This 79-nucleotide RNA sequence from Eptesicus fuscus belongs to the Rfam family "mir-9198 microRNA precursor family". The source organism's lineage runs through Eukaryota, Amniota, Eutheria, Chiroptera and Eptesicus. The family has 6 seed sequences and 64 matches in Rfam 15.1. The base pairs follow the family's consensus structure, which was predicted with RNAalifold.
[Rfam]
Nucleotides: 079
Stems, first nucleotide, its partner, number of pairs: 004074007012066009022056007
Number, partner (000 for none) and nucleotide at each position: 001000g002000c003000u004074g005073c006072c007071g008070c009069u010068c011000a012066c013065a014064c015063c016062c017061a018060c019059u020058g021000c022056u023055g024054g025053c026052a027051c028050c029000u030000g031000g032000c033000g034000c035000c036000g037000g038000a039000c040000c041000u042000g043000a044000u045000c046000g047000c048000u049000u050028g051027g052026u053025g054024c055023u056022g057000u058020c059019a060018g061017u062016g063015g064014g065013u066012g067000c068010g069009a070008g071007c072006g073005g074004c075000g076000g077000c078000u079000g